The record is a 170-nucleotide RNA from Sinocyclocheilus anshuiensis, which matches "Small Cajal body specific RNA 1" in Rfam. The base pairs follow the family's consensus structure, which was predicted with RNAalifold. Lineage of the source: Eukaryota > Opisthokonta > Actinopteri > Cyprinidae > Sinocyclocheilus. By type it is a small Cajal body RNA. For this family Rfam cites "Cajal body-specific small nuclear RNAs: a novel class of 2'-O-methylation and pseudouridylation guide RNAs" (Darzacq et al., EMBO J, 2002).
RNA sequence: AUGCACCAGAUACUGACCUGACCACCUGCGGCUCAGUUAUGGUUUUCAUACUGAUGCAUGCAUGAUGGUGGCUGUCAGGUCCAAACGGUGCUACAGAAACACAAGACCCUGAGAUUUAAGCUCUGAGAGGGGAGUCGCUCCCUCAGGUGUUAUAACUCGAGGGCACAUUA
Numbered sequence: 001a002u003g004c005a006c007c008a009g010a011u012a013c014u015g016a017c018c019u020g021a022c023c024a025c026c027u028g029c030g031g032c033u034c035a036g037u038u039a040u041g042g043u044u045u046u047c048a049u050a051c052u053g054a055u056g057c058a059u060g061c062a063u064g065a066u067g068g069u070g071g072c073u074g075u076c077a078g079g080u081c082c083a084a085a086c087g088g089u090g091c092u093a094c095a096g097a098a099a100c101a102c103a104a105g106a107c108c109c110u111g112a113g114a115u116u117u118a119a120g121c122u123c124u125g126a127g128a129g130g131g132g133a134g135u136c137g138c139u140c141c142c143u144c145a146g147g148u149g150u151u152a153u154a155a156c157u158c159g160a161g162g163g164c165a166c167a168u169u170a
Stems, first nucleotide, its partner, number of pairs: 003091005015081004020073001022071005027062004031057002033054001035052003107163002125140003129136002141161001143159001147158001149156002